[Rfam]
RNA: SAM riboswitch aptamer (S box leader)
Organism: Aquimarina sp. RZ0
Nucleotides: 106
Base pairs, nucleotide, nucleotide: 002105003104004103005102006101007100008099013043014042015041016040017039021032022031023030026080027079028078029077044072045071046070047069049068050067051064052063053062054061076098081095082094083093084092085091086090
Number, partner (000 for none) and nucleotide at each position: 001000a002105a003104g004103u005102u006101a007100u008099u009000a010000a011000g012000a013043a014042a015041g016040g017039u018000g019000g020000a021032g022031g023030g024000a025000u026080u027079a028078g029077a030023c031022c032021c033000u034000a035000u036000g037000a038000a039017a040016c041015c042014u043013u044072a045071g046070c047069a048000a049068c050067c051064c052063u053062u054061u055000a056000u057000u058000a059000g060000u061054a062053a063052a064051g065000a066000a067050g068049g069047u070046g071045c072044u073000a074000a075000a076098u077029u078028c079027u080026a081095u082094c083093u084092c085091a086090a087000u088000u089000u090086u091085u092084g093083a094082g095081a096000g097000a098076a099008g100007a101006u102005a103004a104003c105002u106000c